[Rfam]
RNA: CyVA-1 RNA
RNA sequence: UGAUCGACGCAGGAGUUGUGCUGUUUGUCCUGUUUAUCGCUUCCCAAAGGAGAACGGCGUCAGGGUAGCGAGCGAUCG
Numbered sequence: 001u002g003a004u005c006g007a008c009g010c011a012g013g014a015g016u017u018g019u020g021c022u023g024u025u026u027g028u029c030c031u032g033u034u035u036a037u038c039g040c041u042u043c044c045c046a047a048a049g050g051a052g053a054a055c056g057g058c059g060u061c062a063g064g065g066u067a068g069c070g071a072g073c074g075a076u077c078g
Stems, first nucleotide, its partner, number of pairs: 001078006009033004038070004043065003